[Rfam]
RNA sequence: CGGGAGGUUCCUUUACUCGGAUCGUCCGGCACGUUCCUGCCGGUGAAGGGACUGACAC
Numbered sequence: 001c002g003g004g005a006g007g008u009u010c011c012u013u014u015a016c017u018c019g020g021a022u023c024g025u026c027c028g029g030c031a032c033g034u035u036c037c038u039g040c041c042g043g044u045g046a047a048g049g050g051a052c053u054g055a056c057a058c
Stems, first nucleotide, its partner, number of pairs: 009050007026043006

This 58-nucleotide RNA sequence from Actinacidiphila reveromycinica belongs to the Rfam family "msiK RNA". Rfam 15.1 lists 1,374 matches to the family in 1,364 species.